[Rfam]
RNA sequence: AUCUGAGAAAAGCAAACUAUCCGAAAGGGUGGGACGCAAAGCCGCUGGCCUAAAUCGUAGUUGGAAGACUAUGACACGGUAGCAGGGUUGCCUCA
Number, nucleotide and partner (000 for none) at each position: 001a000002u000003c000004u000005g000006a000007g000008a000009a000010a000011a000012g037013c036014a000015a000016a000017c032018u031019a030020u029021c028022c027023g000024a000025a000026a000027g022028g021029g020030u019031g018032g017033g000034a000035c000036g013037c012038a000039a000040a089041g088042c087043c086044g000045c085046u084047g083048g080049c079050c078051u000052a000053a000054a000055u074056c073057g072058u071059a070060g069061u068062u067063g000064g000065a000066a000067g062068a061069c060070u059071a058072u057073g056074a055075c000076a000077c000078g050079g049080u048081a000082g000083c047084a046085g045086g043087g042088u041089u040090g000091c000092c000093u000094c000095a000
RNA: c-di-GMP-I riboswitch aptamer